[Rfam]
Notes: This 90-nucleotide RNA sequence from Gulbenkiania mobilis belongs to the Rfam family "Glycine riboswitch aptamer".
RNA sequence: GCCCAUCGUGCAGGAGAGCGCGGCUUAGGGCCGCCGCCGAAGGCGCAAGUGCACCCGCAAUCGCUCAGGCAAAAGGACUGCAUCAUCGGG
Numbered sequence: 001g002c003c004c005a006u007c008g009u010g011c012a013g014g015a016g017a018g019c020g021c022g023g024c025u026u027a028g029g030g031c032c033g034c035c036g037c038c039g040a041a042g043g044c045g046c047a048a049g050u051g052c053a054c055c056c057g058c059a060a061u062c063g064c065u066c067a068g069g070c071a072a073a074a075g076g077a078c079u080g081c082a083u084c085a086u087c088g089g090g
Stems, first nucleotide, its partner, number of pairs: 006085001008083006020034004036070003039066002043064003049058002